A member of the RNA family "algC RNA" from Salmonella enterica, 51 nucleotides long. The family's RNA type in Rfam is cis-regulatory element.
[Rfam]
RNA sequence: ACGAUGUUGGCCAUUUAUGGUCAGGGCUAACUGUUGCCUGAAGAAGGGUAA
Numbered sequence: 001a002c003g004a005u006g007u008u009g010g011c012c013a014u015u016u017a018u019g020g021u022c023a024g025g026g027c028u029a030a031c032u033g034u035u036g037c038c039u040g041a042a043g044a045a046g047g048g049u050a051a
Base pairs, nucleotide, nucleotide: 009022010021011020012019013018